[Rfam]
RNA sequence: AAAUAGGCUUUCUAGGGUUCCGUAACAGUAUUCUGUUAGACUGGUCCGAGAGAAAGCUCACAGCUUUCAAAGAAGCUGUGCCACGGAAGGAUAAAAGCCUGGGAGAU
Numbered sequence: 001a002a003a004u005a006g007g008c009u010u011u012c013u014a015g016g017g018u019u020c021c022g023u024a025a026c027a028g029u030a031u032u033c034u035g036u037u038a039g040a041c042u043g044g045u046c047c048g049a050g051a052g053a054a055a056g057c058u059c060a061c062a063g064c065u066u067u068c069a070a071a072g073a074a075g076c077u078g079u080g081c082c083a084c085g086g087a088a089g090g091a092u093a094a095a096a097g098c099c100u101g102g103g104a105g106a107u
Stems, first nucleotide, its partner, number of pairs: 007057006015047002020044002022041001023038006059080008082102001084105001088100003
The family of this 107-nucleotide RNA from Halobacillus sp. BAB-2008 is "Guanidine-I riboswitch aptamer". Rfam's curators write: This family represents a conserved RNA structure found upstream of the ykkC and yxkD genes in Bacillus subtilis and related genes in other bacteria. The function of this family is unclear although it has been suggested that it may function to switch on efflux pumps and detoxification systems in response to harmful environmental molecules. The pairing is the family consensus, mapped onto this sequence.